Overview: This 131-nucleotide RNA sequence from Urocitellus parryii belongs to the Rfam family "Small nucleolar RNA SNORD94". It is annotated as a C/D-box small nucleolar RNA. For this family Rfam cites "Identification of 13 novel human modification guide RNAs" (Vitali et al., Nucleic Acids Res, 2003). Its family is annotated with nucleolus and RNA processing in the Gene Ontology. The family has 21 seed sequences and 802 matches in Rfam 15.1. The source organism's lineage runs through Eukaryota, Opisthokonta, Dipnotetrapodomorpha, Mammalia and Urocitellus.
[Rfam]
RNA sequence: CAGGCUGUGAUGAUUGGCGCAGGGGUACGGACCUCAGCUGAGUCAUGGGAGCUGAGUGUGUGUGUCUGCCUCUGUCCUGCAUGUGGCAGGCUGGUGGCGGCACCUACACGAGACCGCGCAAUCUGAGCCUG
Numbered sequence: 001c002a003g004g005c006u007g008u009g010a011u012g013a014u015u016g017g018c019g020c021a022g023g024g025g026u027a028c029g030g031a032c033c034u035c036a037g038c039u040g041a042g043u044c045a046u047g048g049g050a051g052c053u054g055a056g057u058g059u060g061u062g063u064g065u066c067u068g069c070c071u072c073u074g075u076c077c078u079g080c081a082u083g084u085g086g087c088a089g090g091c092u093g094g095u096g097g098c099g100g101c102a103c104c105u106a107c108a109c110g111a112g113a114c115c116g117c118g119c120a121a122u123c124u125g126a127g128c129c130u131g
Stems, first nucleotide, its partner, number of pairs: 001131005